A member of the RNA family "Yersinia sRNA 155(RyfD)" from Tenebrionibacter intestinalis, 140 nucleotides long.
The match comes from Rfam's covariance-model search (103 bits).
By type it is a small RNA.
The sRNA was identified by and is confirmed to have a stable secondary structure by using genome-wide structure probing at different temperatures. The function is unknown.
The literature on the family includes a 2016 paper in Proc Natl Acad Sci U S A by Righetti et al., "Temperature-responsive in vitro RNA structurome of Yersinia pseudotuberculosis".
[Rfam]
RNA sequence: CAGGACGAUCCAGUAUGGGUAGCUAUGCACUCACAUAAUUAUGGUCAUUCACCUUGAAUAAUUGAGGGAUGACCUCACUUAAUCUCCAGUAGCAAAUUUGACCAUUCUGUGGGAGGAGUUAUGCGUCUGGAUCGUCUUAC
Numbered sequence: 001c002a003g004g005a006c007g008a009u010c011c012a013g014u015a016u017g018g019g020u021a022g023c024u025a026u027g028c029a030c031u032c033a034c035a036u037a038a039u040u041a042u043g044g045u046c047a048u049u050c051a052c053c054u055u056g057a058a059u060a061a062u063u064g065a066g067g068g069a070u071g072a073c074c075u076c077a078c079u080u081a082a083u084c085u086c087c088a089g090u091a092g093c094a095a096a097u098u099u100g101a102c103c104a105u106u107c108u109g110u111g112g113g114a115g116g117a118g119u120u121a122u123g124c125g126u127c128u129g130g131a132u133c134g135u136c137u138u139a140c
Base pairs, nucleotide, nucleotide: 002138003137004136005135006134007133008132009131010130011129012128015126016125017124019122021120022119023118024043025042026041027040029039031038052067053066054065055064056063057062068079070077071076083116084115085114086113087112089110090109091108